[Rfam]
RNA sequence: UGGUAUGGGUUAAUUGGUAGCCCAUGUAAAACUUUUUGAAUUGCUGGAAACCCCUAACGUAAAGACGAGGGCAAUCAGCAGCGAAGCUCACAUGGUAACAGUGUGUGAACGUUCAACGACUAUGUACUAUCAAUUGAUAGGCAGCGGAAAGCGUUUGACAAAUAUAUACUCCUGUGAUAUAAUGUUUUAAUAUGAAAAUUUUGUCAAAUAAUGAUAUAGUCUGGUCUCAUAUGAAAAUAUGAG
Numbered sequence: 001u002g003g004u005a006u007g008g009g010u011u012a013a014u015u016g017g018u019a020g021c022c023c024a025u026g027u028a029a030a031a032c033u034u035u036u037u038g039a040a041u042u043g044c045u046g047g048a049a050a051c052c053c054c055u056a057a058c059g060u061a062a063a064g065a066c067g068a069g070g071g072c073a074a075u076c077a078g079c080a081g082c083g084a085a086g087c088u089c090a091c092a093u094g095g096u097a098a099c100a101g102u103g104u105g106u107g108a109a110c111g112u113u114c115a116a117c118g119a120c121u122a123u124g125u126a127c128u129a130u131c132a133a134u135u136g137a138u139a140g141g142c143a144g145c146g147g148a149a150a151g152c153g154u155u156u157g158a159c160a161a162a163u164a165u166a167u168a169c170u171c172c173u174g175u176g177a178u179a180u181a182a183u184g185u186u187u188u189a190a191u192a193u194g195a196a197a198a199u200u201u202u203g204u205c206a207a208a209u210a211a212u213g214a215u216a217u218a219g220u221c222u223g224g225u226c227u228c229a230u231a232u233g234a235a236a237a238u239a240u241g242a243g
Stems, first nucleotide, its partner, number of pairs: 032151004037146002042080006051071003055067001081112002089105005116222001118221005154208009228241005